[Rfam]
RNA sequence: UUGGUGGUGCUGAGUGGAAGACUAGUGAUUUUGUUGUGAUGCUGAUCAAAGAACAACAAGUCCCAGUCUGCCUCUCAGCACAAGCAG
Dot-bracket structure: .((.(.((.(((((.((.(((((.(.(((((.(((((...............)))))))))).)))))).)).))))).)).).)).